[Rfam]
Rfam assigns this 299-nucleotide sequence from Hucho hucho to the family "Metazoan signal recognition particle RNA". Rfam's curators write: The signal recognition particle (SRP) is a universally conserved ribonucleoprotein. The match comes from Rfam's covariance-model search (252 bits).
RNA sequence: GCCGGGCGCGGUGGCGCGUGCCUGUAAUCCAAGUCACUGGGAGGCUGAGGUUGGUGGAUCGAGUGAGCUGAGGAGCUCUGGGCUGUAGCGUGCUAUGUCGAGCGGGUGUCCACACUAAGUUCGGUACCGAUAUGGUGCUCCUGGGGGAGCCCGGGACCACCAGGUCGUCUAAGGAGGGGUGCACCGGCCCAGGUUGGAAACGAAGCAGGUCAAAGCCCCCGUGCCAUCCAGUAGUAGGAUAGCGCCUGUGAGUAGACGCUGUAGUCCAGCCGUAGCAAGACAUCGAAACCUAACUUUUU
Numbered sequence: 001g002c003c004g005g006g007c008g009c010g011g012u013g014g015c016g017c018g019u020g021c022c023u024g025u026a027a028u029c030c031a032a033g034u035c036a037c038u039g040g041g042a043g044g045c046u047g048a049g050g051u052u053g054g055u056g057g058a059u060c061g062a063g064u065g066a067g068c069u070g071a072g073g074a075g076c077u078c079u080g081g082g083c084u085g086u087a088g089c090g091u092g093c094u095a096u097g098u099c100g101a102g103c104g105g106g107u108g109u110c111c112a113c114a115c116u117a118a119g120u121u122c123g124g125u126a127c128c129g130a131u132a133u134g135g136u137g138c139u140c141c142u143g144g145g146g147g148a149g150c151c152c153g154g155g156a157c158c159a160c161c162a163g164g165u166c167g168u169c170u171a172a173g174g175a176g177g178g179g180u181g182c183a184c185c186g187g188c189c190c191a192g193g194u195u196g197g198a199a200a201c202g203a204a205g206c207a208g209g210u211c212a213a214a215g216c217c218c219c220c221g222u223g224c225c226a227u228c229c230a231g232u233a234g235u236a237g238g239a240u241a242g243c244g245c246c247u248g249u250g251a252g253u254a255g256a257c258g259c260u261g262u263a264g265u266c267c268a269g270c271c272g273u274a275g276c277a278a279g280a281c282a283u284c285g286a287a288a289c290c291u292a293a294c295u296u297u298u299u
Base pairs, nucleotide, nucleotide: 001045002044003043004023005022006021007020008019009018010017028042029041030040047297048296049295050294051293052292053291054290059286060285061284062283067276068275069274070273072271073270078269079268080267081266082265083264084263085262086261087260088259089258090257093255094254095253096252098250102249103248104247105246106245107244108243109242110238111237114235115234116233117232119229123225124224125223126222127221128167129166130165131164133162134161135160136159137158139156140155141154142153143152144151145150168174169173176219177218178217179216180215186211187210188209189208194203195202196201
Rfam classes the family as a non-coding RNA gene. Gene Ontology terms of the family: signal recognition particle, endoplasmic reticulum targeting and SRP-dependent cotranslational protein targeting to membrane, signal sequence recognition. The family's consensus secondary structure is taken from published work. Taxonomically the source falls in Hucho (Eukaryota, Euteleostomi, Teleostei, Protacanthopterygii).